Bacterial RNase P class B: a 350-nucleotide RNA sequence from Spiroplasma helicoides. On this family, see Frank and Pace, Annu Rev Biochem 1998: "Ribonuclease P: unity and diversity in a tRNA processing ribozyme". Ribonuclease P (RNase P) is a ubiquitous endoribonuclease, found in archaea, bacteria and eukarya as well as chloroplasts and mitochondria. It is annotated as a ribozyme. The source organism's lineage runs through Bacteria, Mycoplasmatota, Mollicutes, Entomoplasmatales and Spiroplasma. The base pairs follow the family's consensus structure, which is taken from published work. It scores 252 bits against the family's covariance model.
[Rfam]
RNA sequence: UUUUUGAAUCAAUCGCUGUAUUUGCAAAAUAAUACAGAGGAAACUCCACGCUUGCACAUUCUGUGAUGAAUGUAGUGAUUGUGCUAGAGGAAUAAAAUAACUCUAGGCACCAUUUUAUGGUGAUGACUUGUAUGAAGCCUAAGUGAUUUUUCAUAUGGCGACAUCUUUAAAGUGCCACAGAGACGAUUAGCUAGAAAUAGUGAAAUGGAACGGGUAAACUCCACAAGCAAGAAACUCAAAUUAUGGUAGAGGAACUAAGAGGCUGGGAAACGAACUAGUCUUUUGGAUCACCUUUUUGGUGAUAGAUAGAUGGUUGAUACGCUUAUGCGAACAGAACGUGGGUUAUGAUA
Numbered sequence: 001u002u003u004u005u006g007a008a009u010c011a012a013u014c015g016c017u018g019u020a021u022u023u024g025c026a027a028a029a030u031a032a033u034a035c036a037g038a039g040g041a042a043a044c045u046c047c048a049c050g051c052u053u054g055c056a057c058a059u060u061c062u063g064u065g066a067u068g069a070a071u072g073u074a075g076u077g078a079u080u081g082u083g084c085u086a087g088a089g090g091a092a093u094a095a096a097a098u099a100a101c102u103c104u105a106g107g108c109a110c111c112a113u114u115u116u117a118u119g120g121u122g123a124u125g126a127c128u129u130g131u132a133u134g135a136a137g138c139c140u141a142a143g144u145g146a147u148u149u150u151u152c153a154u155a156u157g158g159c160g161a162c163a164u165c166u167u168u169a170a171a172g173u174g175c176c177a178c179a180g181a182g183a184c185g186a187u188u189a190g191c192u193a194g195a196a197a198u199a200g201u202g203a204a205a206u207g208g209a210a211c212g213g214g215u216a217a218a219c220u221c222c223a224c225a226a227g228c229a230a231g232a233a234a235c236u237c238a239a240a241u242u243a244u245g246g247u248a249g250a251g252g253a254a255c256u257a258a259g260a261g262g263c264u265g266g267g268a269a270a271c272g273a274a275c276u277a278g279u280c281u282u283u284u285g286g287a288u289c290a291c292c293u294u295u296u297u298g299g300u301g302a303u304a305g306a307u308a309g310a311u312g313g314u315u316g317a318u319a320c321g322c323u324u325a326u327g328c329g330a331a332c333a334g335a336a337c338g339u340g341g342g343u344u345a346u347g348a349u350a
Stems, first nucleotide, its partner, number of pairs: 004350001007346001008318007016037006042344003046341005051231005056073006079226005084106006107124001108122006125221002137159003143154003172219002174215003187204002190201004235251003255286007287303006320329003